[Rfam]
The record is a 131-nucleotide RNA from Brachypodium distachyon, which matches "Small nucleolar RNA snoR77" in Rfam. The family's consensus secondary structure was predicted with WAR. A reference for the family is Marker et al. (2002), "Experimental RNomics: identification of 140 candidates for small non-messenger RNAs in the plant Arabidopsis thaliana", Curr Biol. Rfam links the family to the GO terms nucleolus and RNA processing. The family's RNA type in Rfam is H/ACA-box small nucleolar RNA.
Nucleotides: 131
Stems, first nucleotide, its partner, number of pairs: 002049004008044001009042002012039005070125003075120001077118001082113003086107003091099001
Number, partner (000 for none) and nucleotide at each position: 001000a002049g003048g004047c005046a006000a007000a008044u009042c010041u011000u012039u013038u014037g015036u016035c017000u018000c019000c020000g021000u022000u023000u024000u025000a026000a027000a028000a029000a030000g031000c032000g033000a034000u035016g036015g037014c038013a039012a040000u041010g042009g043000a044008g045000g046005u047004g048003u049002u050000g051000a052000g053000u054000u055000g056000c057000u058000c059000a060000a061000a062000a063000a064000u065000u066000a067000a068000a069000u070125c071124u072123u073000c074000u075120g076000c077118u078000u079000a080000g081000g082113g083112g084111a085000g086107g087106c088105u089000g090000u091099g092000c093000u094000u095000c096000c097000c098000u099091c100000c101000c102000u103000g104000a105088a106087g107086c108000u109000g110000a111084u112083c113082u114000a115000g116000u117000a118077g119000u120075c121000u122000u123072g124071a125070g126000g127000a128000c129000a130000u131000a